[Rfam]
RNA sequence: GUGGCGCCGGAGGUUCGCCUCCGGCGAGGAUCGCAAC
Numbered sequence: 001g002u003g004g005c006g007c008c009g010g011a012g013g014u015u016c017g018c019c020u021c022c023g024g025c026g027a028g029g030a031u032c033g034c035a036a037c
Base pairs, nucleotide, nucleotide: 005026006025007024008023009022010021011020012019013018
This 37-nucleotide RNA from Glycomyces paridis belongs to the Rfam family "CRISPR RNA direct repeat element". The source organism's lineage runs through Bacteria, Bacillati, Actinomycetota, Glycomycetales and Glycomyces. The base pairs follow the family's consensus structure, which was predicted with WAR.